[Rfam]
6S / SsrS RNA: a 199-nucleotide RNA from Pseudoflavonifractor sp. An176.
On this family, see Elkina et al., RNA Biol 2017: "6S RNA in Rhodobacter sphaeroides: 6S RNA and pRNA transcript levels peak in late exponential phase and gene deletion causes a high salt stress phenotype".
It is annotated as a non-coding RNA gene.
NCBI's taxonomy places the organism under Bacteria, Bacillati, Eubacteriales, Oscillospiraceae, Pseudoflavonifractor.
RNA sequence: UGAUCCCUGCCUUGUCUCGUGACCACCUUUUUAAAACCCACAUCUUUUAAACGGGAUGUCCCCUCAUCUGGCGGAUCGCAGGCCUCCCGGACCCCUUCGGAGUGUUUGGACGUUGGAAGUGAGGAAACCAGAUGGAGACAACCCACCUGCAUUUGCGUGCAGGUUUUUAAUUGGGUGGCACGGCUAUGGCGGGGCCCUU
Number, nucleotide and partner (000 for none) at each position: 001u000002g197003a000004u000005c194006c193007c192008u191009g190010c189011c188012u186013u000014g184015u183016c000017u000018c182019g181020u180021g000022a000023c000024c000025a000026c000027c000028u000029u000030u000031u000032u000033a167034a166035a165036a164037c163038c162039c000040a000041c000042a000043u000044c000045u000046u000047u000048u000049a000050a000051a000052c000053g144054g143055g142056a000057u140058g139059u138060c137061c000062c135063c000064u134065c000066a133067u132068c131069u130070g129071g128072c000073g000074g000075a000076u000077c000078g120079c119080a000081g000082g000083c116084c115085u000086c000087c112088c000089g000090g000091a000092c000093c000094c000095c000096u000097u000098c000099g000100g000101a000102g000103u000104g000105u000106u000107u000108g000109g000110a000111c000112g087113u000114u000115g084116g083117a000118a000119g079120u078121g000122a000123g000124g000125a000126a000127a000128c071129c070130a069131g068132a067133u066134g064135g062136a000137g060138a059139c058140a057141a000142c055143c054144c053145a000146c000147c000148u000149g000150c000151a000152u000153u000154u000155g000156c000157g000158u000159g000160c000161a000162g038163g037164u036165u035166u034167u033168u000169a000170a000171u000172u000173g000174g000175g000176u000177g000178g000179c000180a020181c019182g018183g015184c014185u000186a012187u000188g011189g010190c009191g008192g007193g006194g005195c000196c000197c002198u000199u000